[Rfam]
The record is a 120-nucleotide RNA sequence, which matches "LOOT RNA" in Rfam. The sequence is in the family's curated seed alignment. The base pairs follow the family's consensus structure, which is taken from published work. The family's RNA type in Rfam is small RNA.
RNA sequence: AGCCUAAACCCAGUAGUGAUACUUGGCAUGGCACAAAAUCCUAGUGAAUAUUAACGGGCUUCUGCUCGGUCCUAUUCACUAGGUCUACUUCCGAAAGGUUGUAGGAUGUCGCAAGGCAUC
Numbered sequence: 001a002g003c004c005u006a007a008a009c010c011c012a013g014u015a016g017u018g019a020u021a022c023u024u025g026g027c028a029u030g031g032c033a034c035a036a037a038a039u040c041c042u043a044g045u046g047a048a049u050a051u052u053a054a055c056g057g058g059c060u061u062c063u064g065c066u067c068g069g070u071c072c073u074a075u076u077c078a079c080u081a082g083g084u085c086u087a088c089u090u091c092c093g094a095a096a097g098g099u100u101g102u103a104g105g106a107u108g109u110c111g112c113a114a115g116g117c118a119u120c
Base pairs, nucleotide, nucleotide: 002032003031004030009026010025012023013022014021015020040083041082042081043080044079045078046077047076048075049074050073053070055068056067057066058065059064085104086103087102088101091098092097105120106119107118108117109116110115
Dot-bracket structure: .(((....((.((((....)))).))...))).......(((((((((((..(.(((((....))))).)..))))))))))).((((..((....))..))))((((((....))))))